[Rfam]
Nucleotides: 190
Base pairs, nucleotide, nucleotide: 015100016099017098022092023091024090025089026088027087028086029085030084036047037046038045039044048076049075050074051073054070055069056068116183117182119179120178131170132169135166136165137164138163142156143155144154145153146152
Number, partner (000 for none) and nucleotide at each position: 001000a002000a003000c004000a005000u006000c007000a008000u009000u010000u011000u012000u013000a014000u015100c016099g017098c018000u019000c020000a021000c022092a023091c024090u025089g026088a027087c028086c029085c030084c031000a032000u033000a034000c035000u036047c037046u038045u039044u040000u041000u042000u043000u044039a045038g046037a047036g048076a049075g050074g051073g052000a053000a054070g055069a056068c057000g058000c059000a060000a061000u062000u063000u064000u065000c066000g067000a068056g069055u070054u071000c072000c073051u074050u075049c076048u077000g078000g079000u080000u081000u082000u083000c084030g085029g086028g087027g088026u089025c090024g091023g092022u093000a094000a095000g096000a097000a098017g099016c100015g101000u102000a103000g104000a105000c106000a107000g108000a109000a110000u111000c112000u113000c114000a115000a116183g117182a118000c119179c120178g121000u122000u123000g124000c125000u126000g127000g128000g129000c130000g131170c132169c133000u134000g135166a136165u137164g138163u139000u140000g141000a142156u143155u144154u145153u146152u147000u148000u149000c150000a151000u152146a153145a154144a155143a156142a157000g158000a159000g160000g161000a162000u163138a164137c165136a166135u167000u168000u169132g170131g171000a172000a173000u174000c175000a176000g177000c178120u179119g180000u181000u182117u183116c184000u185000a186000c187000a188000a189000u190000u
Small nucleolar RNA snR32: a 190-nucleotide sequence from Lachancea kluyveri. The family's consensus secondary structure was predicted with WAR. Its family is annotated with nucleolus and RNA processing in the Gene Ontology. Rfam classes the family as an H/ACA-box small nucleolar RNA.